[Rfam]
Overview
Glycine riboswitch aptamer: an 88-nucleotide RNA sequence from Exobacillus caeni. Rfam's curators write: This family represents the bacterial glycine riboswitch. It scores 71 bits against the family's covariance model.
RNA sequence: AUGAGAACAAGGGGAGAGACUACGAAAAGUAGCGCCGAAGGAGCAAGCGGUUUGUGAAUCUCUCAGGCAAAAAGACUCUUGUUUGACG
Dot-bracket structure: .....((((((((......((((.....)))).(((((..(((...((.....))....))))).))).......)))))))).....
Rfam links the family to the GO term glycine biosynthetic process.